[Rfam]
RNA sequence: UUGGUGUGACGCGGGGAGAUUUUAGUCGGUAGGCGCCGGACCGAACUUCGGCUCGGGGCGGCGAAUCCGACACUAUCCGGGAUGGUUCCCCGGGCGUCUUUUGAAGAUUUCCUCCUCGUCAA
Numbered sequence: 001u002u003g004g005u006g007u008g009a010c011g012c013g014g015g016g017a018g019a020u021u022u023u024a025g026u027c028g029g030u031a032g033g034c035g036c037c038g039g040a041c042c043g044a045a046c047u048u049c050g051g052c053u054c055g056g057g058g059c060g061g062c063g064a065a066u067c068c069g070a071c072a073c074u075a076u077c078c079g080g081g082a083u084g085g086u087u088c089c090c091c092g093g094g095c096g097u098c099u100u101u102u103g104a105a106g107a108u109u110u111c112c113u114c115c116u117c118g119u120c121a122a
Stems, first nucleotide, its partner, number of pairs: 001122004012118007025071005034063005042055003046051001073096001076094006